[Rfam]
This 115-nucleotide sequence from Erysipelothrix sp. HDW6C belongs to the Rfam family "FMN riboswitch aptamer (RFN element)". Lineage of the source: Bacteria > Bacillati > Erysipelotrichales > Erysipelotrichaceae > Erysipelothrix. Its family is annotated with FMN binding in the Gene Ontology. The family's consensus secondary structure is taken from published work. The match comes from Rfam's covariance-model search (102 bits).
RNA sequence: CAUGUACUUCAGGGCAGGGUGGAAUUCCCGAUCGGCGGUAAACCCCGCGAGCCGUAUGGUUGAACUGGUUUGAUUCCAGUGGCGACAGUUAAAGUCUGGAUGGAAGAAGUUUUUU
Numbered sequence: 001c002a003u004g005u006a007c008u009u010c011a012g013g014g015c016a017g018g019g020u021g022g023a024a025u026u027c028c029c030g031a032u033c034g035g036c037g038g039u040a041a042a043c044c045c046c047g048c049g050a051g052c053c054g055u056a057u058g059g060u061u062g063a064a065c066u067g068g069u070u071u072g073a074u075u076c077c078a079g080u081g082g083c084g085a086c087a088g089u090u091a092a093a094g095u096c097u098g099g100a101u102g103g104a105a106g107a108a109g110u111u112u113u114u115u
Base pairs, nucleotide, nucleotide: 004112006110007109008108009107010106017029018028019027031095032094033084034083035048036047037046038045043082044081051060052059053058064080065079066078067077068076086098087097088096